[Rfam]
RNA: Iron response element I
Organism: Conger conger
RNA sequence: GAAGUUCUUGGAUCAACAGUGAUUGAACGGAACUUC
Numbered sequence: 001g002a003a004g005u006u007c008u009u010g011g012a013u014c015a016a017c018a019g020u021g022a023u024u025g026a027a028c029g030g031a032a033c034u035u036c
Stems, first nucleotide, its partner, number of pairs: 001036008010028001013026004017021001